[Rfam]
A member of the RNA family "mir-499 microRNA precursor family" from Rattus norvegicus, 65 nucleotides long. Rfam links the family to the GO terms miRNA-mediated post-transcriptional gene silencing and RISC complex. The literature on the family includes a 2008 paper in Genome Res by Murchison et al., "Conservation of small RNA pathways in platypus".
RNA sequence: GCUGUUAAGACUUGCAGUGAUGUUUAGCUCCUCUCCAUGUGAACAUCACAGCAAGUCUGUGCUGC
Numbered sequence: 001g002c003u004g005u006u007a008a009g010a011c012u013u014g015c016a017g018u019g020a021u022g023u024u025u026a027g028c029u030c031c032u033c034u035c036c037a038u039g040u041g042a043a044c045a046u047c048a049c050a051g052c053a054a055g056u057c058u059g060u061g062c063u064g065c
Stems, first nucleotide, its partner, number of pairs: 008058007017049010